Notes
Rfam assigns this 98-nucleotide sequence from Lentivirus simimdef to the family "HIV primer binding site (PBS)". This family consists of several, structured HIV primer binding sites (PBSs). tRNA(3)(Lys) binds to the PBS to initiate reverse transcription. By type it is a cis-regulatory element.
Nucleotides: 098
Stems, first nucleotide, its partner, number of pairs: 001098007010053008018042001020039001022036001055088001057086001060083002062072003075080001
Number, partner (000 for none) and nucleotide at each position: 001098c002097u003096c004095u005094g006093g007092u008000a009000a010053c011052u012051a013050g014049a015048g016047a017046u018042c019000c020039c021000u022036c023000a024000g025000a026000a027000c028000u029000c030000u031000u032000a033000a034000a035000a036022g037000u038000a039020g040000g041000u042018g043000a044000a045000a046017a047016u048015c049014u050013c051012u052011a053010g054000c055088a056000g057086u058000g059000g060083c061082g062072c063071c064070c065000g066000a067000a068000c069000a070064g071063g072062g073000a074000c075080u076000u077000g078000a079000a080075a081000a082061c083060g084000a085000a086057a087000g088055u089000a090000c091000a092007a093006c094005c095004a096003g097002a098001g
Gene Ontology term of the family: tRNA binding. On this family, see Song et al., Nucleic Acids Res 2021: "The three-way junction structure of the HIV-1 PBS-segment binds host enzyme important for viral infectivity".